[Rfam]
RNA: mir-367 microRNA precursor family
RNA sequence: CUAAUACUGUUGCUAAUGUGUAACUCUGUUGUAAGCAACUGGAAUUGCACUUUAGCAAUGGUGUUGG
Numbered sequence: 001c002u003a004a005u006a007c008u009g010u011u012g013c014u015a016a017u018g019u020g021u022a023a024c025u026c027u028g029u030u031g032u033a034a035g036c037a038a039c040u041g042g043a044a045u046u047g048c049a050c051u052u053u054a055g056c057a058a059u060g061g062u063g064u065u066g067g
Base pairs, nucleotide, nucleotide: 005063006062007061008060009059010058011057012056013055014054015053016052019049020048021047022046023045025043026042027041028040